[Rfam]
RNA sequence: AAAGAUAGAGGUGAAGAAUCUGUCGUUCACGGACCGAAAGGUUGCAGAUGUAGGAGAUGGCAGUCCUACCUAUCUAA
Dot-bracket structure: ..((((((..(((((....[[[[[.))))).((((....)))..)....(((((....]]]]].)))))))))))..
Shown here is a 77-nucleotide RNA from Helcococcus ovis, a member of the family "skipping-rope RNA". It is annotated as a small RNA. A search with the family's covariance model found it, with a score of 46 bits.